mir-199 microRNA precursor family: an 80-nucleotide RNA sequence from Amphiprion percula.
Its family is annotated with RISC complex and miRNA-mediated post-transcriptional gene silencing in the Gene Ontology.
The literature on the family includes a 2002 paper in Genes Dev by Mourelatos et al., "miRNPs: a novel class of ribonucleoproteins containing numerous microRNAs".
The organism belongs to Amphiprion, within Eukaryota.

[Rfam]
RNA sequence: GCCUCGCCUACCCAGUGUUCAGACUACCUGUUCAUCCAGAUACAGCUGAACAGUAGUCUGCACAUUGGUUAGGCUAGACU
Numbered sequence: 001g002c003c004u005c006g007c008c009u010a011c012c013c014a015g016u017g018u019u020c021a022g023a024c025u026a027c028c029u030g031u032u033c034a035u036c037c038a039g040a041u042a043c044a045g046c047u048g049a050a051c052a053g054u055a056g057u058c059u060g061c062a063c064a065u066u067g068g069u070u071a072g073g074c075u076a077g078a079c080u
Stems, first nucleotide, its partner, number of pairs: 012068007020060007028053004033048002
Dot-bracket structure: ...........(((((((.(((((((.((((.((............)).))))))))))).)))))))............
From the family's description: This family consists of the microRNA (miRNA) precursor mir-199 which appears to be specific to humans. Animal miRNAs are transcribed as ~70nt precursors and subsequently processed by the Dicer enzyme to give a ~22nt product. In this case the mature sequence comes from the 3' arm of the precursor. The extents of the hairpin precursors are not generally known and are estimated based on hairpin prediction.